[Rfam]
RNA sequence: UAUUUGCUAUGAUGACAUCUACAAGGACGACGUUUGAGUAAGGUGGCUCUUAAAAUGGUGCCUCUUUGCAUCCAAUCUGAAUGAGAUUCUGAGCAAGAC
Numbered sequence: 001u002a003u004u005u006g007c008u009a010u011g012a013u014g015a016c017a018u019c020u021a022c023a024a025g026g027a028c029g030a031c032g033u034u035u036g037a038g039u040a041a042g043g044u045g046g047c048u049c050u051u052a053a054a055a056u057g058g059u060g061c062c063u064c065u066u067u068g069c070a071u072c073c074a075a076u077c078u079g080a081a082u083g084a085g086a087u088u089c090u091g092a093g094c095a096a097g098a099c
Stems, first nucleotide, its partner, number of pairs: 003097005038069006
A member of the RNA family "Small nucleolar RNA Z118/Z121/Z120" from Zea mays, 99 nucleotides long. Pairs were carried over by alignment from the consensus structure, which was predicted with PFOLD. The organism belongs to Zea, within Eukaryota. By type it is a C/D-box small nucleolar RNA. On this family, see Chen et al., Nucleic Acids Res 2003: "The high diversity of snoRNAs in plants: identification and comparative study of 120 snoRNA genes from Oryza sativa".